[Rfam]
RNA: BsrC
Organism: Paenibacillus albus
RNA sequence: AUGCACGAAAGCAACGAAAGCCCUAACCUCUCUAACGUCCUUGCGGCUCCUCGGGCCGCGCCAGUGUGAAUCCGUGUUUCCUUUAAAGCA
Numbered sequence: 001a002u003g004c005a006c007g008a009a010a011g012c013a014a015c016g017a018a019a020g021c022c023c024u025a026a027c028c029u030c031u032c033u034a035a036c037g038u039c040c041u042u043g044c045g046g047c048u049c050c051u052c053g054g055g056c057c058g059c060g061c062c063a064g065u066g067u068g069a070a071u072c073c074g075u076g077u078u079u080c081c082u083u084u085a086a087a088g089c090a
Stems, first nucleotide, its partner, number of pairs: 036068002040064002042060007